[Rfam]
RNA sequence: GAUGACAGGCCGAGCGGGGGCGGCUUUCAGGAGCCGCCCUCAAAUCACCUUCAGCUGCUGCAAUAAAGAGUUGUGGUAGUGAGCGUAAAGGGAAAAGGCAUGUUAAAUAUGCCAGGA
Dot-bracket structure: (.(.........).)((((((.((((....)))).))))))...((.((((.(((.(((.((((.....)))).))).)).....).)))).....((((((.....))))))..))
Numbered sequence: 001g002a003u004g005a006c007a008g009g010c011c012g013a014g015c016g017g018g019g020g021c022g023g024c025u026u027u028c029a030g031g032a033g034c035c036g037c038c039c040u041c042a043a044a045u046c047a048c049c050u051u052c053a054g055c056u057g058c059u060g061c062a063a064u065a066a067a068g069a070g071u072u073g074u075g076g077u078a079g080u081g082a083g084c085g086u087a088a089a090g091g092g093a094a095a096a097g098g099c100a101u102g103u104u105a106a107a108u109a110u111g112c113c114a115g116g117a
Stems, first nucleotide, its partner, number of pairs: 001015001003013001016041006023034004045117002048091004053086001054080002057077003061073004097113006
Group II catalytic intron D1-D4-2: a 117-nucleotide RNA sequence from Chitinophaga ginsengisegetis. Rfam describes the family as follows. Group II introns are found in rRNA, tRNA and mRNA of organelles in fungi, plants and protists, and also in mRNA in bacteria. A reference for the family is Bonen and Vogel (2001), "The ins and outs of group II introns", Trends Genet. The family has 144 seed sequences and 1,231 matches in Rfam 15.1.